[Rfam]
RNA sequence: CGCAUCCCCAUCGGGGAGUAGUCCCGGCCCGCCGUCUGCGGGCCGUCGCGGCGUCAACACACUUGGUCCACAGACCAUGGCGCCGCGGGUGCGAAUCGGACGAGACCGCUGGUUGAUGCGAUGCCGCCCCGCCGGGCCGGCGCCGUGUCGACCAUCGCGUUU
Numbered sequence: 001c002g003c004a005u006c007c008c009c010a011u012c013g014g015g016g017a018g019u020a021g022u023c024c025c026g027g028c029c030c031g032c033c034g035u036c037u038g039c040g041g042g043c044c045g046u047c048g049c050g051g052c053g054u055c056a057a058c059a060c061a062c063u064u065g066g067u068c069c070a071c072a073g074a075c076c077a078u079g080g081c082g083c084c085g086c087g088g089g090u091g092c093g094a095a096u097c098g099g100a101c102g103a104g105a106c107c108g109c110u111g112g113u114u115g116a117u118g119c120g121a122u123g124c125c126g127c128c129c130c131g132c133c134g135g136g137c138c139g140g141c142g143c144c145g146u147g148u149c150g151a152c153c154a155u156c157g158c159g160u161u162u
Stems, first nucleotide, its partner, number of pairs: 025045005047087010064077005
The family of this 162-nucleotide sequence from Chiayiivirga flava is "Manganese Mn2+ riboswitch aptamer (yybP-ykoY)".
Lineage of the source: Bacteria > Pseudomonadota > Lysobacterales > Lysobacteraceae > Chiayiivirga.
Its family is annotated with manganese ion binding in the Gene Ontology.